[Rfam]
Rfam assigns this 157-nucleotide sequence from Taxus chinensis to the family "U1 spliceosomal RNA". It scores 72 bits against the family's covariance model. Rfam's curators write: U1 is a small nuclear RNA (snRNA) component of the spliceosome (involved in pre-mRNA splicing). The base pairs follow the family's consensus structure, which is taken from published work.
RNA sequence: AUACGUACCUGGGCGGGGUCAAUCAGUGGUCAGAAAGGCCGAUGGCCUAGGGAGGGCACCUUAAUUACACUAGGAAUGGGGCGCUGUCUAACAUCUCCCAUUGUGGAGAGUGCAUGUCAUCAUUUGUGCCUGCGAGGCUCACAUUCACAUGGCCUCC
Numbered sequence: 001a002u003a004c005g006u007a008c009c010u011g012g013g014c015g016g017g018g019u020c021a022a023u024c025a026g027u028g029g030u031c032a033g034a035a036a037g038g039c040c041g042a043u044g045g046c047c048u049a050g051g052g053a054g055g056g057c058a059c060c061u062u063a064a065u066u067a068c069a070c071u072a073g074g075a076a077u078g079g080g081g082c083g084c085u086g087u088c089u090a091a092c093a094u095c096u097c098c099c100a101u102u103g104u105g106g107a108g109a110g111u112g113c114a115u116g117u118c119a120u121c122a123u124u125u126g127u128g129c130c131u132g133c134g135a136g137g138c139u140c141a142c143a144u145u146c147a148c149a150u151g152g153c154c155u156c157c
Base pairs, nucleotide, nucleotide: 012118013117014116015115016048017047018046019045020044021043023042024041026039027038049089050088051087056082057081059079060078062075092112093111094109095108096107097106098105134156135155136154137153138152140151141150
The organism belongs to Taxus, within Eukaryota.